[Rfam]
RNA sequence: GAGUGAACACAGCUCUUUUAGAAUGUUUCUAGCAGGAUUUCUGACUCUAGUUGGAAAAUCUAA
Dot-bracket structure: ..................................((.((((((((....)))))))).))...
Notes
A member of the RNA family "U7 small nuclear RNA" from Mus musculus, 63 nucleotides long. A search with the family's covariance model found it, with a score of 42 bits.